[Rfam]
RNA sequence: GCUGGCAUAAUGAUGAAAUCUUUGCCGUUUACCCAUCUGAGGUUUUUUUUUGAUGUGUAUCUUUGAAUCUGAAAUGCCAGU
Numbered sequence: 001g002c003u004g005g006c007a008u009a010a011u012g013a014u015g016a017a018a019u020c021u022u023u024g025c026c027g028u029u030u031a032c033c034c035a036u037c038u039g040a041g042g043u044u045u046u047u048u049u050u051u052g053a054u055g056u057g058u059a060u061c062u063u064u065g066a067a068u069c070u071g072a073a074a075u076g077c078c079a080g081u
Base pairs, nucleotide, nucleotide: 001081002080003079004078005077006076007075

Annotation
The record is an 81-nucleotide RNA sequence from Nycticryphes semicollaris, which matches "Small nucleolar RNA SNORD87" in Rfam. By type it is a C/D-box small nucleolar RNA. A search with the family's covariance model found it, with a score of 61 bits. On this family, see Gogolevskaya et al., Gene 2002: "U87 RNA, a novel C/D box small nucleolar RNA from mammalian cells". The pairing is the family consensus, mapped onto this sequence.